[Rfam]
Rfam assigns this 84-nucleotide RNA sequence to the family "RAGATH-28 RNA". By type it is a small RNA.
RNA sequence: GUACGGUUGAUGCGUCCCGUACCGAUCGGCGCAGCGGAAUAUACAAAAACGGCUUUUUAAAACUGAAUUGCCGAAUGGCGAAGC
Number, nucleotide and partner (000 for none) at each position: 001g022002u021003a020004c019005g018006g017007u000008u000009g000010a000011u000012g000013c000014g000015u000016c000017c006018c005019g004020u003021a002022c001023c000024g000025a000026u000027c000028g000029g000030c000031g000032c000033a000034g000035c000036g000037g000038a000039a000040u000041a000042u000043a000044c000045a000046a000047a000048a000049a000050c073051g072052g071053c070054u000055u000056u067057u066058u065059a064060a000061a000062a000063c000064u059065g058066a057067a056068u000069u000070g053071c052072c051073g050074a000075a000076u000077g000078g000079c000080g000081a000082a000083g000084c000
The sequence is in the family's curated seed alignment.